[Rfam]
RNA: Fluoride riboswitch aptamer (crcB RNA motif)
RNA sequence: CUUUUAAAAGGCGAUGGAGUUCGCCAAAACCGCCUCAAAGGCUGAUGACUCCUGUGUUUUA
Dot-bracket structure: .........[[[[..((((((]]]]......(((.....)))....)))))).........